Rfam assigns this 252-nucleotide RNA sequence from Trifolium subterraneum to the family "MIR2655 microRNA precursor family". Pairs were carried over by alignment from the consensus structure, which was predicted with RNAalifold. The organism belongs to Trifolium, within Eukaryota.
RNA sequence: CCCUUAUCUUUUAAAAGUUUCAAGUUGGUCCCUUAUCUUUAUUUUAGGUUUCAAGUUGGUCCCUUCCGUCAAUUUUUUAACUAUUUCCGUUAAAUUUGGACACGUGUCAAACUAAUUUGGACACGUGGCACACUUGGACAAAUGACACGUGUCCAAAUUUAAAUGUAACAGUAAAAAAAUUGACGGAAGGGACCAACUUGAAACCUAAACAAAAGAUAAGGGACCAACUUGAAACUUUUAAAAGAUAAGGGA
Numbered sequence: 001c002c003c004u005u006a007u008c009u010u011u012u013a014a015a016a017g018u019u020u021c022a023a024g025u026u027g028g029u030c031c032c033u034u035a036u037c038u039u040u041a042u043u044u045u046a047g048g049u050u051u052c053a054a055g056u057u058g059g060u061c062c063c064u065u066c067c068g069u070c071a072a073u074u075u076u077u078u079a080a081c082u083a084u085u086u087c088c089g090u091u092a093a094a095u096u097u098g099g100a101c102a103c104g105u106g107u108c109a110a111a112c113u114a115a116u117u118u119g120g121a122c123a124c125g126u127g128g129c130a131c132a133c134u135u136g137g138a139c140a141a142a143u144g145a146c147a148c149g150u151g152u153c154c155a156a157a158u159u160u161a162a163a164u165g166u167a168a169c170a171g172u173a174a175a176a177a178a179a180u181u182g183a184c185g186g187a188a189g190g191g192a193c194c195a196a197c198u199u200g201a202a203a204c205c206u207a208a209a210c211a212a213a214a215g216a217u218a219a220g221g222g223a224c225c226a227a228c229u230u231g232a233a234a235c236u237u238u239u240a241a242a243a244g245a246u247a248a249g250g251g252a
Stems, first nucleotide, its partner, number of pairs: 002250007023229003027225003031221010043209001045207003